[Rfam]
Source information
The family of this 122-nucleotide sequence from Paeniglutamicibacter gangotriensis is "TPP riboswitch aptamer (THI element)".

RNA sequence: CAAUCACGACAGGGGAGCGUCGGGCGAAGAAAUUCGUCCCAAGACGCUGAGAGUGCGGAUAGCCGCAGACCCUCGAACCUGCCCCGGCUAGUACCGGCGAAGGAAGUCGAGUUCUCAGGGGU
Numbered sequence: 001c002a003a004u005c006a007c008g009a010c011a012g013g014g015g016a017g018c019g020u021c022g023g024g025c026g027a028a029g030a031a032a033u034u035c036g037u038c039c040c041a042a043g044a045c046g047c048u049g050a051g052a053g054u055g056c057g058g059a060u061a062g063c064c065g066c067a068g069a070c071c072c073u074c075g076a077a078c079c080u081g082c083c084c085c086g087g088c089u090a091g092u093a094c095c096g097g098c099g100a101a102g103g104a105a106g107u108c109g110a111g112u113u114c115u116c117a118g119g120g121g122u
Base pairs, nucleotide, nucleotide: 007109008108009107010106011073012072013071014070017047018046019045020044021043054067055066056065057064058063078103079102080101084097085096086095087094